[Rfam]
RNA: Guanidine-I riboswitch aptamer
Organism: Siminovitchia fortis
RNA sequence: AAAAAUGUUUUCUAGGGUUCCGCAACAUUUUGUUGGUCUGGUCCAAGGGAAAACUCACAGCAUUUGCUGUGUCACGGACGGAUAAAAGCCUAGGAGGU
Numbered sequence: 001a002a003a004a005a006u007g008u009u010u011u012c013u014a015g016g017g018u019u020c021c022g023c024a025a026c027a028u029u030u031u032g033u034u035g036g037u038c039u040g041g042u043c044c045a046a047g048g049g050a051a052a053a054c055u056c057a058c059a060g061c062a063u064u065u066g067c068u069g070u071g072u073c074a075c076g077g078a079c080g081g082a083u084a085a086a087a088g089c090c091u092a093g094g095a096g097g098u
Stems, first nucleotide, its partner, number of pairs: 007054006015044002020041002022038001023035005056071006073093001075096001080090002